The record is a 245-nucleotide RNA sequence from Setophaga kirtlandii, which matches "Small nucleolar RNA SNORD17" in Rfam.
Taxonomically the source falls in Setophaga (Eukaryota, Gnathostomata, Tetrapoda, Parulidae).
On this family, see Huttenhofer et al., EMBO J 2001: "RNomics: an experimental approach that identifies 201 candidates for novel, small, non-messenger RNAs in mouse".
The family has 19 seed sequences and 1,015 matches in Rfam 15.1.
The family's RNA type in Rfam is C/D-box small nucleolar RNA.
The snoRNA HBI-43 belongs to the C/D family of snoRNAs, guiding 2'O-ribose methylation at position U3797 of the 28S rRNA. Pseudouridylation in position U3797 is predicted to be guided by the H/ACA snoRNA ACA48.
[Rfam]
RNA sequence: GUGAGGUGAUGACACAGUUUAUCCAUUCUCUGAGUGCAGUGCAGCUGCCCUCCUGCAGCACCCAGCUCCUGUUCUAGGCUCUGGGUGCUGUGCAGCCUCCAGACAUCCUGCAGUGUCCCAGUGUCCUGCUGGGCGCUGCUGUGCUGUGUGGCUGGCUGCCUGCAGGAGGGGAGCAGUGCUGGCAGGGUUGGAGCCCCUCCUGGGGGGCUGCAGCCUCACUGGGACGAGGGAUGGUGUCUGAUCAC
Numbered sequence: 001g002u003g004a005g006g007u008g009a010u011g012a013c014a015c016a017g018u019u020u021a022u023c024c025a026u027u028c029u030c031u032g033a034g035u036g037c038a039g040u041g042c043a044g045c046u047g048c049c050c051u052c053c054u055g056c057a058g059c060a061c062c063c064a065g066c067u068c069c070u071g072u073u074c075u076a077g078g079c080u081c082u083g084g085g086u087g088c089u090g091u092g093c094a095g096c097c098u099c100c101a102g103a104c105a106u107c108c109u110g111c112a113g114u115g116u117c118c119c120a121g122u123g124u125c126c127u128g129c130u131g132g133g134c135g136c137u138g139c140u141g142u143g144c145u146g147u148g149u150g151g152c153u154g155g156c157u158g159c160c161u162g163c164a165g166g167a168g169g170g171g172a173g174c175a176g177u178g179c180u181g182g183c184a185g186g187g188u189u190g191g192a193g194c195c196c197c198u199c200c201u202g203g204g205g206g207g208c209u210g211c212a213g214c215c216u217c218a219c220u221g222g223g224a225c226g227a228g229g230g231a232u233g234g235u236g237u238c239u240g241a242u243c244a245c
Stems, first nucleotide, its partner, number of pairs: 010244003017237002020234001023230002026228003030223002034219002040181002042178002045176004049169008058088008068078003092159006105145001110139006117133007185217002187214004192209001194207004